[Rfam]
RNA sequence: UGAUUUUUGCCUAUUCCCUCGCUGAUCCCUCGUUGAUCAGCGAGGGAUCAGCGAGGGAAAAGCAAAAAGCAUUUUCCCUCGCAGAUCAGCGAGGGAUCAGCGAGGGAAAUGGCCAAAAAUCAGAUUCCCUCGAUGAUCCCUCGCAGAUCAGCGAGGGAUCA
Numbered sequence: 001u002g003a004u005u006u007u008u009g010c011c012u013a014u015u016c017c018c019u020c021g022c023u024g025a026u027c028c029c030u031c032g033u034u035g036a037u038c039a040g041c042g043a044g045g046g047a048u049c050a051g052c053g054a055g056g057g058a059a060a061a062g063c064a065a066a067a068a069g070c071a072u073u074u075u076c077c078c079u080c081g082c083a084g085a086u087c088a089g090c091g092a093g094g095g096a097u098c099a100g101c102g103a104g105g106g107a108a109a110u111g112g113c114c115a116a117a118a119a120u121c122a123g124a125u126u127c128c129c130u131c132g133a134u135g136a137u138c139c140c141u142c143g144c145a146g147a148u149c150a151g152c153g154a155g156g157g158a159u160c161a
Stems, first nucleotide, its partner, number of pairs: 001064002004062005010057002024049003028045006077156006084149004090143010101132008

The record is a 161-nucleotide sequence from Cynara cardunculus, which matches "Small Cajal body specific RNA 11" in Rfam. Taxonomically the source falls in Cynara cardunculus subsp. cardunculus (Eukaryota, Magnoliopsida, Mesangiospermae, Cardueae). scaRNAs are a specific class of small nuclear RNAs which localise to the Cajal bodies and guide the modification of RNA polymerase II transcribed spliceosomal RNAs U1, U2, U4, U5 and U12. ACA57 belongs to the H/ACA box class of guide RNAs as it has the predicted hairpin-hinge-hairpin-tail structure, conserved H/ACA-box motifs and is found associated with GAR1.